[Rfam]
RNA: RT-14 RNA
Organism: Alkalihalobacillus alcalophilus
RNA sequence: CUGCUUAUCACUGUCAGAAGUUCAAGGUUCAACGAACCUUGUUCCAGCACGGAUGAUAAGGGGUCUAAUUCCAUGCCGAUGAAGGCAAAAAACUUUAUUGCUGGUAAGUUAGUUAGUAGUUAAAACGAAGGGUAGCACGACCAG
Numbered sequence: 001c002u003g004c005u006u007a008u009c010a011c012u013g014u015c016a017g018a019a020g021u022u023c024a025a026g027g028u029u030c031a032a033c034g035a036a037c038c039u040u041g042u043u044c045c046a047g048c049a050c051g052g053a054u055g056a057u058a059a060g061g062g063g064u065c066u067a068a069u070u071c072c073a074u075g076c077c078g079a080u081g082a083a084g085g086c087a088a089a090a091a092a093c094u095u096u097a098u099u100g101c102u103g104g105u106a107a108g109u110u111a112g113u114u115a116g117u118a119g120u121u122a123a124a125a126c127g128a129a130g131g132g133u134a135g136c137a138c139g140a141c142c143a144g
Base pairs, nucleotide, nucleotide: 005056006055007054008053009052013050014049020044023041024040025039026038027037028036075086076085077084101144102143103142104141105140108136109135110134111133113131119126120125